[Rfam]
RNA sequence: ACUGAAAAAGGCAAACCCGCCGAAAGACGGGGACGCAAAGUCUUGGGCCUAAAGCGGACAAUCGUCCCGUCACGGCAGCCAGACUGCCGGUA
Numbered sequence: 001a002c003u004g005a006a007a008a009a010g011g012c013a014a015a016c017c018c019g020c021c022g023a024a025a026g027a028c029g030g031g032g033a034c035g036c037a038a039a040g041u042c043u044u045g046g047g048c049c050u051a052a053a054g055c056g057g058a059c060a061a062u063c064g065u066c067c068c069g070u071c072a073c074g075g076c077a078g079c080c081a082g083a084c085u086g087c088c089g090g091u092a
Stems, first nucleotide, its partner, number of pairs: 003089002011036002016031004021026001034078001039085004044081003047076003